[Rfam]
RNA: t44 RNA
Organism: Zophobihabitans entericus
RNA sequence: UAUUAACUAACGUUAUAACACACACAUAUCACCACUAUUCGCCGGGGUGCUUUUAUCACUGAUAAAGGUCGGUCUGAACAGGAUAUGUGGAGGCAUAAC
Number, nucleotide and partner (000 for none) at each position: 001u000002a000003u000004u000005a000006a000007c000008u000009a000010a000011c000012g000013u000014u000015a000016u000017a000018a000019c000020a000021c000022a000023c089024a088025c087026a086027u085028a084029u083030c082031a000032c000033c000034a000035c000036u080037a000038u078039u077040c076041g073042c072043c071044g070045g000046g000047g000048u000049g069050c068051u067052u066053u065054u000055a000056u000057c000058a000059c000060u000061g000062a000063u000064a000065a053066a052067g051068g050069u049070c044071g043072g042073u041074c000075u000076g040077a039078a038079c000080a036081g000082g030083a029084u028085a027086u026087g025088u024089g023090g000091a000092g000093g000094c000095a000096u000097a000098a000099c000